[Rfam]
RNA sequence: GUCGGGAUGCCGAAGUCGGGUCCCGCACUUAAUCACUCGCUGAAUCUCAGGAGAUUUUUAUGAGC
Numbered sequence: 001g002u003c004g005g006g007a008u009g010c011c012g013a014a015g016u017c018g019g020g021u022c023c024c025g026c027a028c029u030u031a032a033u034c035a036c037u038c039g040c041u042g043a044a045u046c047u048c049a050g051g052a053g054a055u056u057u058u059u060a061u062g063a064g065c
Base pairs, nucleotide, nucleotide: 003025004024005023006022007021008020010019011018012017031055036053037052038051040050041049042048043047
Rfam assigns this 65-nucleotide RNA from Pseudomonas cavernae to the family "Repression of heat shock gene expression (ROSE) element".
Pairs were carried over by alignment from the consensus structure.
The family's RNA type in Rfam is RNA thermoregulator.
Gene Ontology terms of the family: response to temperature stimulus and regulation of translation.
On this family, see Krajewski et al., PLoS One 2013: "Short ROSE-Like RNA Thermometers Control IbpA Synthesis in Pseudomonas Species".